[Rfam]
RNA sequence: UUGAAGAAUUUGAAGACUUCAACUUACAAAUUUGAAGACUUCAACUUGCAAACAUGAAGAAUUUGAAAACUUCAACU
Numbered sequence: 001u002u003g004a005a006g007a008a009u010u011u012g013a014a015g016a017c018u019u020c021a022a023c024u025u026a027c028a029a030a031u032u033u034g035a036a037g038a039c040u041u042c043a044a045c046u047u048g049c050a051a052a053c054a055u056g057a058a059g060a061a062u063u064u065g066a067a068a069a070c071u072u073c074a075a076c077u
Base pairs, nucleotide, nucleotide: 001075002074003073004072005071006070009067010066011065012064013063014062017059018058019057020056021055025050027048028047032044033043034042035041036040
Rfam assigns this 77-nucleotide RNA sequence from Solanum lycopersicum to the family "MIR8024 microRNA precursor family". A search with the family's covariance model found it, with a score of 67 bits. The organism belongs to Solanum subgen. Lycopersicon, within Eukaryota. Gene Ontology terms of the family: miRNA-mediated post-transcriptional gene silencing and RISC complex.